[Rfam]
RNA sequence: UUUGUCGUGAGACAAAAGCUGAAGGAAGCGUGUACCAAAAUCUUGGUCCGACGAACAGAAAUCUGAUACAAAGGCUUUAUAGGCGGAUGAGACUCCAAUUCAAGUCAAAGUCCAUGUAUAUGAGAAAUUACGGUUCUAUACACCUGAUAAAUGGAGUUAAGU
Numbered sequence: 001u002u003u004g005u006c007g008u009g010a011g012a013c014a015a016a017a018g019c020u021g022a023a024g025g026a027a028g029c030g031u032g033u034a035c036c037a038a039a040a041u042c043u044u045g046g047u048c049c050g051a052c053g054a055a056c057a058g059a060a061a062u063c064u065g066a067u068a069c070a071a072a073g074g075c076u077u078u079a080u081a082g083g084c085g086g087a088u089g090a091g092a093c094u095c096c097a098a099u100u101c102a103a104g105u106c107a108a109a110g111u112c113c114a115u116g117u118a119u120a121u122g123a124g125a126a127a128u129u130a131c132g133g134u135u136c137u138a139u140a141c142a143c144c145u146g147a148u149a150a151a152u153g154g155a156g157u158u159a160a161g162u
Stems, first nucleotide, its partner, number of pairs: 001016006042161004047155004062151001064150001066148002074144001076142001078140006085113004091106004
Annotation
Group II catalytic intron D1-D4-3: a 162-nucleotide RNA sequence from Pseudogracilibacillus auburnensis. The literature on the family includes a 2001 paper in Trends Genet by Bonen and Vogel, "The ins and outs of group II introns". The base pairs follow the family's consensus structure. The match comes from Rfam's covariance-model search (73 bits).